[Rfam]
RNA sequence: GGUUUCCUGUUUCAACAGUGCUUGAACGGAAUGC
Numbered sequence: 001g002g003u004u005u006c007c008u009g010u011u012u013c014a015a016c017a018g019u020g021c022u023u024g025a026a027c028g029g030a031a032u033g034c
Stems, first nucleotide, its partner, number of pairs: 002032003006029002009027001011026005016020001
A member of the RNA family "Iron response element I" from Tupaia belangeri, 34 nucleotides long. The base pairs follow the family's consensus structure, which is taken from published work. Rfam links the family to the GO term response to iron ion. A reference for the family is Hentze et al. (1987), "Identification of the iron-responsive element for the translational regulation of human ferritin mRNA", Science. It is annotated as a cis-regulatory element.